[Rfam]
RNA: L31-Actinobacteria ribosomal protein leader
RNA sequence: UUGGUUCCGGUUCACGGUGCGGCGGCCUGCCGUAUCGACCCGGCGCU
Numbered sequence: 001u002u003g004g005u006u007c008c009g010g011u012u013c014a015c016g017g018u019g020c021g022g023c024g025g026c027c028u029g030c031c032g033u034a035u036c037g038a039c040c041c042g043g044c045g046c047u
Base pairs, nucleotide, nucleotide: 003047004046005045007043008042009041010040015037016036017035018034019033020032021031022030023029